RNA sequence: UACAACUAAAUAAUCCCCCCUCAUAUAACCUUGGGAAUAUGGCCCAAAAGUCUCUACCCAGUAACCGUAAAAUACUGGACUAUGAGGAAAGCCGUGAUACUA
Numbered sequence: 001u002a003c004a005a006c007u008a009a010a011u012a013a014u015c016c017c018c019c020c021u022c023a024u025a026u027a028a029c030c031u032u033g034g035g036a037a038u039a040u041g042g043c044c045c046a047a048a049a050g051u052c053u054c055u056a057c058c059c060a061g062u063a064a065c066c067g068u069a070a071a072a073u074a075c076u077g078g079a080c081u082a083u084g085a086g087g088a089a090a091g092c093c094g095u096g097a098u099a100c101u102a
Stems, first nucleotide, its partner, number of pairs: 019087007031047005058078006
This 102-nucleotide RNA from Alkalicella caledoniensis belongs to the Rfam family "Purine riboswitch aptamer". Riboswitches are metabolite binding domains within certain messenger RNAs that serve as precision sensors for their corresponding targets. Allosteric rearrangement of mRNA structure is mediated by ligand binding, and this results in modulation of gene expression. A class of riboswitches that selectively recognises guanine and becomes saturated at concentrations as low as 5 nM. In Bacillus subtilis, this mRNA motif is located on at least five separate transcriptional units that together encode 17 genes that are mostly involved in purine transport and purine nucleotide biosynthesis. It has also been shown that some members of this family are specific for adenine instead. The organism belongs to Alkalicella, within Bacteria. A search with the family's covariance model found it, with a score of 84 bits.